[Rfam]
RNA sequence: UUGAACCUUCGGGGCAGGGUGAAAUUCCCUACCGGCGGUGAUGGACGGCUCACGAGUUGAGCCGCCCUCAGUCCGUGACCCGCGCAUCUUCAUUUCCUGGCGGAAAGGAAGAUGCCGGUGGACUCGGUGCAAUUCCGAGACCGACAGUAUAGUCUGGAUGGGAGAAGGGGAAG
Numbered sequence: 001u002u003g004a005a006c007c008u009u010c011g012g013g014g015c016a017g018g019g020u021g022a023a024a025u026u027c028c029c030u031a032c033c034g035g036c037g038g039u040g041a042u043g044g045a046c047g048g049c050u051c052a053c054g055a056g057u058u059g060a061g062c063c064g065c066c067c068u069c070a071g072u073c074c075g076u077g078a079c080c081c082g083c084g085c086a087u088c089u090u091c092a093u094u095u096c097c098u099g100g101c102g103g104a105a106a107g108g109a110a111g112a113u114g115c116c117g118g119u120g121g122a123c124u125c126g127g128u129g130c131a132a133u134u135c136c137g138a139g140a141c142c143g144a145c146a147g148u149a150u151a152g153u154c155u156g157g158a159u160g161g162g163a164g165a166a167g168g169g170g171a172a173g
Base pairs, nucleotide, nucleotide: 006168007167008166009165010164017029018028019027031153032152033143034142035083036082037081038080086119087118088117123139124138125137126136127135145156146155147154